[Rfam]
RNA sequence: AUUUUUCUAGUAUAAUUAGUACAUUUGACUUCCAAUCAAAAGAUUGAAAUAUCAAGAAAAAUA
Number, nucleotide and partner (000 for none) at each position: 001a062002u061003u060004u059005u058006u057007c056008u000009a000010g022011u021012a020013u019014a000015a000016u000017u000018a000019g013020u012021a011022c010023a000024u040025u039026u038027g037028a036029c000030u000031u000032c000033c000034a000035a000036u028037c027038a026039a025040a024041a000042g000043a000044u055045u054046g053047a052048a000049a000050u000051a000052u047053c046054a045055a044056g007057a006058a005059a004060a003061a002062u001063a000